Source information: Shown here is a 431-nucleotide sequence from Novosphingobium fuchskuhlense, a member of the family "Bacterial RNase P class A". The match comes from Rfam's covariance-model search (266 bits). The organism belongs to Novosphingobium, within Bacteria. The family's consensus secondary structure is taken from published work.
RNA sequence: CCAGGGGGCCGGGCAGCCGCGUGAUCGCAAGAUCCCGAGGAAAGUCCGGGCUCCACGAAACAAGGGUGGCGGGUAACGCCCGCCGGGCGGAGGAUUUCGGUCCUUGGCCAAGGGAAAGUGCCACAGAGAGCAGACCGCUAACCCAGAAAUGGGCAGCAAGGGUGAAAGGGUGCGGCAAGAGCGCACCGCGCGGGCCGGCAACGGACGCGGCAUGGCAAACCCCACCCGGAGCAAGACCGAAUAGGGACUGCGCGCUUCUUUCGGGAAGCAGGCCUGUUUCGGGCCAGCAGUCCGGGUUGGUCGCUUGAGCGCGCCCGGCAACGGGCCGCCUAGAGGAAUGGCUGCCGACGCGGAUACGGUCCACAUUGCAAGGGCAACCUUGGGGGAUACCGUCCGCGCCACAGAACCCGGCUUACAGGCCCCCUGGCAUU
Numbered sequence: 001c002c003a004g005g006g007g008g009c010c011g012g013g014c015a016g017c018c019g020c021g022u023g024a025u026c027g028c029a030a031g032a033u034c035c036c037g038a039g040g041a042a043a044g045u046c047c048g049g050g051c052u053c054c055a056c057g058a059a060a061c062a063a064g065g066g067u068g069g070c071g072g073g074u075a076a077c078g079c080c081c082g083c084c085g086g087g088c089g090g091a092g093g094a095u096u097u098c099g100g101u102c103c104u105u106g107g108c109c110a111a112g113g114g115a116a117a118g119u120g121c122c123a124c125a126g127a128g129a130g131c132a133g134a135c136c137g138c139u140a141a142c143c144c145a146g147a148a149a150u151g152g153g154c155a156g157c158a159a160g161g162g163u164g165a166a167a168g169g170g171u172g173c174g175g176c177a178a179g180a181g182c183g184c185a186c187c188g189c190g191c192g193g194g195c196c197g198g199c200a201a202c203g204g205a206c207g208c209g210g211c212a213u214g215g216c217a218a219a220c221c222c223c224a225c226c227c228g229g230a231g232c233a234a235g236a237c238c239g240a241a242u243a244g245g246g247a248c249u250g251c252g253c254g255c256u257u258c259u260u261u262c263g264g265g266a267a268g269c270a271g272g273c274c275u276g277u278u279u280c281g282g283g284c285c286a287g288c289a290g291u292c293c294g295g296g297u298u299g300g301u302c303g304c305u306u307g308a309g310c311g312c313g314c315c316c317g318g319c320a321a322c323g324g325g326c327c328g329c330c331u332a333g334a335g336g337a338a339u340g341g342c343u344g345c346c347g348a349c350g351c352g353g354a355u356a357c358g359g360u361c362c363a364c365a366u367u368g369c370a371a372g373g374g375c376a377a378c379c380u381u382g383g384g385g386g387a388u389a390c391c392g393u394c395c396g397c398g399c400c401a402c403a404g405a406a407c408c409c410g411g412c413u414u415a416c417a418g419g420c421c422c423c424c425u426g427g428c429a430u431u
Stems, first nucleotide, its partner, number of pairs: 001427010011416001012346007020037002023034004042414003046411005051231004060279001062277001064227005069083005084112001086109003113222002118220002120216003135161002137157003142153004169187006188211001189209004195204003235302004245293006271285005309329003313326005